[Rfam]
RNA sequence: GACCUUGUGGUUGCCAAGCGAAGUCACUUUUUGAUCCUUGGAUGUCAGCUAUUCCUAUCAUUGUGAAGCAGAAUUCACCAAGUAUUGCAUUGUUCACCCACUAAUAGGGAAGGUGAGCUGGGUUUAGACCUCGUCUUGAGACAGGUUACUU
Numbered sequence: 001g002a003c004c005u006u007g008u009g010g011u012u013g014c015c016a017a018g019c020g021a022a023g024u025c026a027c028u029u030u031u032u033g034a035u036c037c038u039u040g041g042a043u044g045u046c047a048g049c050u051a052u053u054c055c056u057a058u059c060a061u062u063g064u065g066a067a068g069c070a071g072a073a074u075u076c077a078c079c080a081a082g083u084a085u086u087g088c089a090u091u092g093u094u095c096a097c098c099c100a101c102u103a104a105u106a107g108g109g110a111a112g113g114u115g116a117g118c119u120g121g122g123u124u125u126a127g128a129c130c131u132c133g134u135c136u137u138g139a140g141a142c143a144g145g146u147u148a149c150u151u
Base pairs, nucleotide, nucleotide: 005033007032009028010027011026013024014023046121047119048118049117050116052110053109054108055107056106060083063078064077065076066075067074086100087099090096127147128146129145130144133142134141135140

Rfam assigns this 151-nucleotide part of an RNA from Chrysochloris asiatica to the family "Eukaryotic large subunit ribosomal RNA". Taxonomically the source falls in Chrysochloris (Eukaryota, Chordata, Gnathostomata, Chrysochloridae).